[Rfam]
RNA sequence: UAGAGUUAUGAGUUCCCGAUAGGAUUCACGUGAUGCGUGAAGAAGCCUUGUAACCUUAAAAAAUAAUAGGGGGAAAAUAGAAUG
Numbered sequence: 001u002a003g004a005g006u007u008a009u010g011a012g013u014u015c016c017c018g019a020u021a022g023g024a025u026u027c028a029c030g031u032g033a034u035g036c037g038u039g040a041a042g043a044a045g046c047c048u049u050g051u052a053a054c055c056u057u058a059a060a061a062a063a064u065a066a067u068a069g070g071g072g073g074a075a076a077a078u079a080g081a082a083u084g
Stems, first nucleotide, its partner, number of pairs: 013075005021048003025041005054070002

The record is an 84-nucleotide sequence from Lentilactobacillus buchneri, which matches "SAM-III riboswitch aptamer (SMK box)" in Rfam.
Gene Ontology terms of the family: methionine adenosyltransferase activity and regulation of translational initiation.